[Rfam]
RNA sequence: CAAGUGUGGUAAAUGAUCGCGGCUCCGCUAUGCGGAGGUGAGGAAAGUCCGGGCUUCACAGGGCAGGAUGCCGGAUAACGUCCGGUGGAGGUGACUCCAAGGCCAGUGCAACAGAAAUAAACCGCCCGGUUUACCGGGUAAGGGUGGAAAGGCAGUGUAAGAGACUACCGCCCUCAAGGUAACGAGAGGGGCACAUGUAAACCCCAUCCGAAGCAAGACCAAACAGAGAACGAUAGGUUUGCCCGACCUGUUUUCAGGUGGGUCGCUUGAAGCUGCUGGUAACAGCAGUUCUAGAUAGAUGAUCAUUCGUGCAGCAAUGCACCGACAUAACCCGGCUUAUCGCUGCGCUUGCAUA
Numbered sequence: 001c002a003a004g005u006g007u008g009g010u011a012a013a014u015g016a017u018c019g020c021g022g023c024u025c026c027g028c029u030a031u032g033c034g035g036a037g038g039u040g041a042g043g044a045a046a047g048u049c050c051g052g053g054c055u056u057c058a059c060a061g062g063g064c065a066g067g068a069u070g071c072c073g074g075a076u077a078a079c080g081u082c083c084g085g086u087g088g089a090g091g092u093g094a095c096u097c098c099a100a101g102g103c104c105a106g107u108g109c110a111a112c113a114g115a116a117a118u119a120a121a122c123c124g125c126c127c128g129g130u131u132u133a134c135c136g137g138g139u140a141a142g143g144g145u146g147g148a149a150a151g152g153c154a155g156u157g158u159a160a161g162a163g164a165c166u167a168c169c170g171c172c173c174u175c176a177a178g179g180u181a182a183c184g185a186g187a188g189g190g191g192c193a194c195a196u197g198u199a200a201a202c203c204c205c206a207u208c209c210g211a212a213g214c215a216a217g218a219c220c221a222a223a224c225a226g227a228g229a230a231c232g233a234u235a236g237g238u239u240u241g242c243c244c245g246a247c248c249u250g251u252u253u254u255c256a257g258g259u260g261g262g263u264c265g266c267u268u269g270a271a272g273c274u275g276c277u278g279g280u281a282a283c284a285g286c287a288g289u290u291c292u293a294g295a296u297a298g299a300u301g302a303u304c305a306u307u308c309g310u311g312c313a314g315c316a317a318u319g320c321a322c323c324g325a326c327a328u329a330a331c332c333c334g335g336c337u338u339a340u341c342g343c344u345g346c347g348c349u350u351g352c353a354u355a
Stems, first nucleotide, its partner, number of pairs: 001351010011340001012307007020040002023037006045338003049335005054213004061244004066209005071085005086100001087098004101204002106202002108198003122143002124139006151169002154166003170192001171190005178183001217264004226255006235249005271290008
Record summary
The record is a 355-nucleotide RNA from Roseburia sp. CAG:100, which matches "Bacterial RNase P class A" in Rfam. By type it is a ribozyme. Lineage of the source: Bacteria > Bacillati > Clostridia > Lachnospiraceae > Roseburia.